Rfam assigns this 58-nucleotide sequence from Caenorhabditis brenneri to the family "mir-246 microRNA precursor family". On this family, see de Wit et al., Genome Res 2009: "Repertoire and evolution of miRNA genes in four divergent nematode species". Lineage of the source: Eukaryota > Protostomia > Ecdysozoa > Chromadorea > Caenorhabditis. Rfam's curators put it in the seed alignment.
[Rfam]
RNA sequence: ACCUGGCCGAAAUCAUGUAAUAUAACAAUGAGUUCUAUUACAUGUUCCGGGUAGGAGC
Numbered sequence: 001a002c003c004u005g006g007c008c009g010a011a012a013u014c015a016u017g018u019a020a021u022a023u024a025a026c027a028a029u030g031a032g033u034u035c036u037a038u039u040a041c042a043u044g045u046u047c048c049g050g051g052u053a054g055g056a057g058c
Stems, first nucleotide, its partner, number of pairs: 002055004007050003014044006022038003